[Rfam]
RNA sequence: GCUGUGAUGAACUUUGAAUCUUUAGUCGGAUACCCCUUCACUCUAAUCAUGAGUGAGACAUCCAGUCUGAAAAGC
Dot-bracket structure: (((.(.................................................................).)))